[Rfam]
RNA: L17 ribosomal protein downstream element
RNA sequence: AGAGUGUUAUGAUGUUGGAGAGCAAUCUCCGAGUCUAGCUCAGCGCCGCUUCCCAGAUUAUCUGGGAAG
Number, nucleotide and partner (000 for none) at each position: 001a000002g041003a040004g039005u038006g000007u000008u000009a000010u000011g035012a034013u033014g000015u000016u000017g030018g029019a028020g027021a026022g000023c000024a000025a000026u021027c020028u019029c018030c017031g000032a000033g013034u012035c011036u000037a000038g005039c004040u003041c002042a000043g000044c000045g000046c000047c000048g000049c069050u068051u067052c066053c065054c064055a063056g062057a061058u000059u000060a000061u057062c056063u055064g054065g053066g052067a051068a050069g049